[Rfam]
RNA sequence: UGGCCAUUGCCUUGUACGUCGCUUUGGACAAAAGCGUCUGCUAAAUGACUAAAU
Dot-bracket structure: ............((((...((((((.....))))))..))).)...........
UnaL2 LINE 3' element: a 54-nucleotide sequence from Clupea harengus. Taxonomically the source falls in Clupea (Eukaryota, Metazoa, Bilateria, Clupeinae). From the family's description: The eel long interspersed element (LINE) UnaL2 and its partner short interspersed element (SINE) share a conserved 3' tail containing a stem-loop that is critical for their retrotransposition. The family has 30 seed sequences and 493,311 matches in Rfam 15.1. It is annotated as a cis-regulatory element. It scores 56 bits against the family's covariance model.